[Rfam]
RNA: MIR473 microRNA precursor family
RNA sequence: CUUGUCCACUCUCUCCAAAGACUUCUAGCUUCUAGACACUUGGUUAGAACUAGCUAGCUAGAAGUCUUUGAGGGGGAGUGAACAA
Numbered sequence: 001c002u003u004g005u006c007c008a009c010u011c012u013c014u015c016c017a018a019a020g021a022c023u024u025c026u027a028g029c030u031u032c033u034a035g036a037c038a039c040u041u042g043g044u045u046a047g048a049a050c051u052a053g054c055u056a057g058c059u060a061g062a063a064g065u066c067u068u069u070g071a072g073g074g075g076g077a078g079u080g081a082a083c084a085a
Stems, first nucleotide, its partner, number of pairs: 007080009016070012